Makes More Granules Regulator RNA (mmgR): a 74-nucleotide RNA from Erythrobacter litoralis. Rfam's curators write: SuhB later renamed mmgR (makes more granules regulator) was a putative non-coding RNA found multiple times in the Agrobacterium tumefaciens genome and related alpha-proteobacteria. Pairs were carried over by alignment from the consensus structure. The organism belongs to Erythrobacter, within Bacteria.
RNA sequence: CAAUAGUGCCUUUCAGGCAUCCUCUCCCAAACUUUUCAAGCCCGGCCUUCGUGCCGGGCUUUUUUCUGCCCUCU
Numbered sequence: 001c002a003a004u005a006g007u008g009c010c011u012u013u014c015a016g017g018c019a020u021c022c023u024c025u026c027c028c029a030a031a032c033u034u035u036u037c038a039a040g041c042c043c044g045g046c047c048u049u050c051g052u053g054c055c056g057g058g059c060u061u062u063u064u065u066c067u068g069c070c071c072u073c074u
Stems, first nucleotide, its partner, number of pairs: 008018004040059007